[Rfam]
RNA sequence: UGGUCAAUGAUGACAAGACCACUGCGCAAUCUGAGUUCUGGAAACCAGAUGAUGGAGUGUGUUCGGACUGAGACCG
Numbered sequence: 001u002g003g004u005c006a007a008u009g010a011u012g013a014c015a016a017g018a019c020c021a022c023u024g025c026g027c028a029a030u031c032u033g034a035g036u037u038c039u040g041g042a043a044a045c046c047a048g049a050u051g052a053u054g055g056a057g058u059g060u061g062u063u064c065g066g067a068c069u070g071a072g073a074c075c076g
Base pairs, nucleotide, nucleotide: 002075003074004073005072038048039047040046041045